[Rfam]
RNA sequence: UAACGAUAAAGGCAAAUUUAGCGAAAGCUAAAGACGCAAAACUAUAGGGUCUUCUUUAUAGAGAUAUAAAGAUGAUAGCCAGUUACCAAA
Dot-bracket structure: ...........((...((((((....))))))...))..((((...(((((....((...........))...)))..))))))......